[Rfam]
RNA: Bacterial large subunit ribosomal RNA, nucleotides 2630 to 2893
Organism: Candidatus Kentrum sp. G
RNA sequence: GGAGACUUGAGGGGAUCUGCUCCUAGUACGAGAGGACCGGAGUGGACGUACCUCUGGUGUUCCGGUUGUCACGCCAGUGGCAUUGCCGGGUAGCUAUGUACGGAAAGGAUAACCGCUGAAAGCAUCUAAGCGGGAAGCCCCCCCCAAGAUAAGGUCUCCCGGACCCUUGAGGUCCCUUAAGGUCUGUCGAAGACUACGACGUUGAUAGGCGGGAUGUGGAAGCGCAGUAAUGUGUGAAGCUAACCCGUACUAAUUGACCGUGCG
Numbered sequence: 001g002g003a004g005a006c007u008u009g010a011g012g013g014g015a016u017c018u019g020c021u022c023c024u025a026g027u028a029c030g031a032g033a034g035g036a037c038c039g040g041a042g043u044g045g046a047c048g049u050a051c052c053u054c055u056g057g058u059g060u061u062c063c064g065g066u067u068g069u070c071a072c073g074c075c076a077g078u079g080g081c082a083u084u085g086c087c088g089g090g091u092a093g094c095u096a097u098g099u100a101c102g103g104a105a106a107g108g109a110u111a112a113c114c115g116c117u118g119a120a121a122g123c124a125u126c127u128a129a130g131c132g133g134g135a136a137g138c139c140c141c142c143c144c145c146a147a148g149a150u151a152a153g154g155u156c157u158c159c160c161g162g163a164c165c166c167u168u169g170a171g172g173u174c175c176c177u178u179a180a181g182g183u184c185u186g187u188c189g190a191a192g193a194c195u196a197c198g199a200c201g202u203u204g205a206u207a208g209g210c211g212g213g214a215u216g217u218g219g220a221a222g223c224g225c226a227g228u229a230a231u232g233u234g235u236g237a238a239g240c241u242a243a244c245c246c247g248u249a250c251u252a253a254u255u256g257a258c259c260g261u262g263c264g
Stems, first nucleotide, its partner, number of pairs: 001159008011145004017045007047102005055096003062089005067082006107139002113133005162174003181259004185201005206252003209248005216240001222235005
Dot-bracket structure: ((((((((..((((..(((((((...............))))))).(((((...(((....(((((((((((....))))))..)))))....))).)))))....((....(((((...........)))))....))..))))......))))))))..(((.......)))......(((((((((.......)))))....((((((((..(.....(((((....)))))....)...))))).)))...)))).....